Description: A member of the RNA family "Mammalian CPEB3 ribozyme" from Alligator mississippiensis, 77 nucleotides long. A search with the family's covariance model found it, with a score of 49 bits. Gene Ontology term of the family: RNA nuclease activity. The base pairs follow the family's consensus structure, which is taken from published work. The mammalian CPEB3 ribozyme is a self cleaving RNA located in the second intron of the CPEB3 gene which belongs to a family of genes regulating messenger RNA polyadenylation.

[Rfam]
RNA sequence: GGUUGCAAGUUUGAGGCCAUAGCAGAAGCACUCGCAGUGCAGCCCUGUCAGAGUCCAAUGACUCCGUGAAUUCUGCU
Dot-bracket structure: ............[.[[[...((((((((((.......))).]]]]...(.(((((....))))).)....)))))))